[Rfam]
This 177-nucleotide RNA sequence from Clostridium kluyveri belongs to the Rfam family "Lysine riboswitch aptamer".
Gene Ontology term of the family: lysine biosynthetic process.
The organism belongs to Clostridium kluyveri, within Bacteria.
A search with the family's covariance model found it, with a score of 112 bits.

RNA sequence: AUUUAAGAUAGAGGUGCAAAAUUUAUAAGUAAAGUUUUGGAGGCAAGCACAAUGAAGGGACUUAAAAGGAAAUUUUGCCGAAGUGUUCAACAGAUGCUUUGAUGUUGAAUUAACUGGUUUUGUAUAAAAUAUAUACAAGACUGUCACAAAUAUAAUUUGUGAAGAGCUAUCAUUCAU
Numbered sequence: 001a002u003u004u005a006a007g008a009u010a011g012a013g014g015u016g017c018a019a020a021a022u023u024u025a026u027a028a029g030u031a032a033a034g035u036u037u038u039g040g041a042g043g044c045a046a047g048c049a050c051a052a053u054g055a056a057g058g059g060a061c062u063u064a065a066a067a068g069g070a071a072a073u074u075u076u077g078c079c080g081a082a083g084u085g086u087u088c089a090a091c092a093g094a095u096g097c098u099u100u101g102a103u104g105u106u107g108a109a110u111u112a113a114c115u116g117g118u119u120u121u122g123u124a125u126a127a128a129a130u131a132u133a134u135a136c137a138a139g140a141c142u143g144u145c146a147c148a149a150a151u152a153u154a155a156u157u158u159g160u161g162a163a164g165a166g167c168u169a170u171c172a173u174u175c176a177u
Stems, first nucleotide, its partner, number of pairs: 007171005016078009032063007082115003085110008116142011144162007